[Rfam]
RNA sequence: UGAAUUAAGCAGAAGUUCCCGCUUCUCACCCAUGCUUAGAGCCUCUGGGUUUAGACGUUAGUUAAUUUGCUGAUGAACUUUCACGCUGCGGGUGCUUUUGUGCCCGCAGUUUUUUUGCGUU
Numbered sequence: 001u002g003a004a005u006u007a008a009g010c011a012g013a014a015g016u017u018c019c020c021g022c023u024u025c026u027c028a029c030c031c032a033u034g035c036u037u038a039g040a041g042c043c044u045c046u047g048g049g050u051u052u053a054g055a056c057g058u059u060a061g062u063u064a065a066u067u068u069g070c071u072g073a074u075g076a077a078c079u080u081u082c083a084c085g086c087u088g089c090g091g092g093u094g095c096u097u098u099u100g101u102g103c104c105c106g107c108a109g110u111u112u113u114u115u116u117g118c119g120u121u
Stems, first nucleotide, its partner, number of pairs: 011026006028050003032044001034042002087108009